[Rfam]
RNA sequence: UGCGGAGUAGAGCAGUGGUAGCUCGGCGCCCUCAUGAGGCGUAGGUCCCCAGUUCGAGCCUGGGCUCCGCAA
Dot-bracket structure: (((((((..((((.......)))).(((((.......))))).....(((((.......)))))))))))).
Numbered sequence: 001u002g003c004g005g006a007g008u009a010g011a012g013c014a015g016u017g018g019u020a021g022c023u024c025g026g027c028g029c030c031c032u033c034a035u036g037a038g039g040c041g042u043a044g045g046u047c048c049c050c051a052g053u054u055c056g057a058g059c060c061u062g063g064g065c066u067c068c069g070c071a072a
Stems, first nucleotide, its partner, number of pairs: 001071007010024004026042005048064005